The family of this 117-nucleotide RNA from Zhihengliuella flava is "SAM (S-adenosyl methionine) riboswitch aptamer". Lineage of the source: Bacteria > Bacillati > Micrococcales > Micrococcaceae > Zhihengliuella. The base pairs follow the family's consensus structure, which is taken from published work.
RNA sequence: GUUCACGAGUCACAGCUGUCGGUACCUGGCCGGCUGUGCGGCAACCCUCUCCAUCGAGUGGGGUGCCCCAGGGGAAGAACCGGCCCGCGCGGAACGUCCCGCGGGCAAGUCGAUGUU
Number, nucleotide and partner (000 for none) at each position: 001g080002u079003u078004c077005a000006c000007g000008a000009g039010u000011c038012a037013c036014a035015g034016c033017u000018g000019u000020c000021g031022g030023u000024a000025c000026c000027u000028g000029g000030c022031c021032g000033g016034c015035u014036g013037u012038g011039c009040g067041g066042c065043a000044a000045c063046c062047c061048u000049c058050u057051c000052c000053a000054u000055c000056g000057a050058g049059u000060g000061g047062g046063g045064u000065g042066c041067c040068c000069c000070a000071g000072g000073g000074g000075a000076a000077g004078a003079a002080c001081c000082g000083g106084c105085c104086c103087g102088c101089g100090c000091g098092g097093a000094a000095c000096g000097u092098c091099c000100c089101g088102c087103g086104g085105g084106c083107a000108a000109g000110u000111c000112g000113a000114u000115g000116u000117u000